A member of the RNA family "Selenocysteine insertion sequence 1" from Loxodonta africana, 64 nucleotides long. Gene Ontology term of the family: selenocysteine incorporation. The organism belongs to Loxodonta, within Eukaryota. The family has 61 seed sequences and 3,793 matches in Rfam 15.1. The family's consensus secondary structure is taken from published work. On this family, see Walczak et al., RNA 1996: "A novel RNA structural motif in the selenocysteine insertion element of eukaryotic selenoprotein mRNAs".

RNA sequence: GUCACCCUUGAUGAUGUGGAUGGAGUAAAGCUUUCAGAACCUCCAUUUGCUGAUGUUGUGUGAU
Dot-bracket structure: (((((..........((((((((((....(.(.....).))))))))))).........)))))